Shown here is a 115-nucleotide RNA sequence from Spongiactinospora gelatinilytica, a member of the family "TPP riboswitch aptamer (THI element)".
NCBI's taxonomy places the organism under Bacteria, Bacillati, Actinomycetota, Streptosporangiaceae, Spongiactinospora.
RNA sequence: UUCAGACCUCGCGGGAGCUCGGGGCCGAACCGGGCUGAGAGGGCAGUAAUGGCCGCUGCCGACCGCAUGAACCUGUCCGGGUAAUGCCGGCGUAGGGAGCGUGUGAUGGCGUCUG
Numbered sequence: 001u002u003c004a005g006a007c008c009u010c011g012c013g014g015g016a017g018c019u020c021g022g023g024g025c026c027g028a029a030c031c032g033g034g035c036u037g038a039g040a041g042g043g044c045a046g047u048a049a050u051g052g053c054c055g056c057u058g059c060c061g062a063c064c065g066c067a068u069g070a071a072c073c074u075g076u077c078c079g080g081g082u083a084a085u086g087c088c089g090g091c092g093u094a095g096g097g098a099g100c101g102u103g104u105g106a107u108g109g110c111g112u113c114u115g
Stems, first nucleotide, its partner, number of pairs: 008101001010099001011066004017035005042060005072096004077090004